[Rfam]
RNA sequence: UGUUCGGAUAGAGGCGCGGCAUACAUGCGUACCGCGGGACACCCGGCCCUGGCAGGCCGUCCCGUGGGAGAGGGUCUGCCGCCGAAGGUUUCCGUUUUGCCAGUGAACGGGGGCCUGGGCCGUGGGGAGAAUAUCCCCCGGACUGUCACAAUGCAGUGGAGCGCUAUCCAGAGA
Dot-bracket structure: .....((((((....((((((.((.......((((((((....................))))))))......)).))))))...((((((((((((.......))))))))))))((.(((.((((......)))).))).)).((((......))))....)))))).....

The record is a 174-nucleotide RNA from Pseudoflavonifractor sp. AF19-9AC, which matches "Lysine riboswitch aptamer" in Rfam. Rfam links the family to the GO term lysine biosynthetic process.